The record is a 75-nucleotide RNA from Arabidopsis thaliana, which matches "Small nucleolar RNA ncR3" in Rfam. The family's consensus secondary structure was predicted with RNAfold. Lineage of the source: Eukaryota > Viridiplantae > Streptophytina > Euphyllophyta > Arabidopsis. It is annotated as a C/D-box small nucleolar RNA. On this family, see Qu et al., BMC Genomics 2015: "Promoter-based identification of novel non-coding RNAs reveals the presence of dicistronic snoRNA-miRNA genes in Arabidopsis thaliana".

RNA sequence: AAAGCUUCCACGUUUUCAUGAAGUUGUUGUGACAAGGUGAUUUUUUCUUCUUUUGGCUGAUUCGGAGAUGCAUUG
Numbered sequence: 001a002a003a004g005c006u007u008c009c010a011c012g013u014u015u016u017c018a019u020g021a022a023g024u025u026g027u028u029g030u031g032a033c034a035a036g037g038u039g040a041u042u043u044u045u046u047c048u049u050c051u052u053u054u055g056g057c058u059g060a061u062u063c064g065g066a067g068a069u070g071c072a073u074u075g
Stems, first nucleotide, its partner, number of pairs: 009039003013035002016032006046068005